[Rfam]
RNA sequence: GACCUAUCCAGAGCGGUGGAGGGAAAGGCCCGAUGAAACCCGGCAACCAGCUUUUGCAUGGUGCCAAUACCUUCAGAAAUCUGAGUGAUGGGAU
Numbered sequence: 001g002a003c004c005u006a007u008c009c010a011g012a013g014c015g016g017u018g019g020a021g022g023g024a025a026a027g028g029c030c031c032g033a034u035g036a037a038a039c040c041c042g043g044c045a046a047c048c049a050g051c052u053u054u055u056g057c058a059u060g061g062u063g064c065c066a067a068u069a070c071c072u073u074c075a076g077a078a079a080u081c082u083g084a085g086u087g088a089u090g091g092g093a094u
Stems, first nucleotide, its partner, number of pairs: 001094001003092006013041001015040003021031003025073004042065004047061002050057002069086001074083003
The record is a 94-nucleotide sequence from Pseudoramibacter alactolyticus, which matches "SAM riboswitch aptamer (S box leader)" in Rfam. The SAM riboswitch is found upstream of a number of genes which code for proteins involved in methionine or cysteine biosynthesis in Gram-positive bacteria. The SAM riboswitch acts at the level of transcription termination control. The predicted structure consists of a complex stem-loop region followed by a single stem loop terminator region. An alternative and mutually exclusive form involves bases in the 3' segment of helix 1 with those in the 5' region of helix 5 to form a structure termed the anti-terminator form. The family's consensus secondary structure is taken from published work. The literature on the family includes a 1998 paper in Mol Microbiol by Grundy and Henkin, "The S box regulon: a new global transcription termination control system for methionine and cysteine biosynthesis genes in gram-positive bacteria".